RNA sequence: CUGAUUUUAUUGUUAAUUAUUGAUUCUCAUUAAAUGAGAAUCAAGCAAAUUUAACCUGUCUUAUUGCAGACAAAACCGUGAGGGGAUGUCAAUUCUGGAAGCAUCGAACCGGAGCGGGAG
Numbered sequence: 001c002u003g004a005u006u007u008u009a010u011u012g013u014u015a016a017u018u019a020u021u022g023a024u025u026c027u028c029a030u031u032a033a034a035u036g037a038g039a040a041u042c043a044a045g046c047a048a049a050u051u052u053a054a055c056c057u058g059u060c061u062u063a064u065u066g067c068a069g070a071c072a073a074a075a076c077c078g079u080g081a082g083g084g085g086a087u088g089u090c091a092a093u094u095c096u097g098g099a100a101g102c103a104u105c106g107a108a109c110c111g112g113a114g115c116g117g118g119a120g
Stems, first nucleotide, its partner, number of pairs: 002019005021047001022042009057068003069090004076083002094113005
Dot-bracket structure: .(((((........))))).((((((((((...)))))))))....).........(((......)))((((...((....))...))))...(((((..........))))).......
A member of the RNA family "Group II catalytic intron D1-D4-7" from Desulfonema limicola, 120 nucleotides long. Its family is annotated with Group II intron splicing in the Gene Ontology. Rfam 15.1 lists 1,296 matches to the family in 705 species. Rfam's curators write: Group II introns are found in rRNA, tRNA and mRNA of organelles in fungi, plants and protists, and also in mRNA in bacteria. Pairs were carried over by alignment from the consensus structure. It scores 39 bits against the family's covariance model.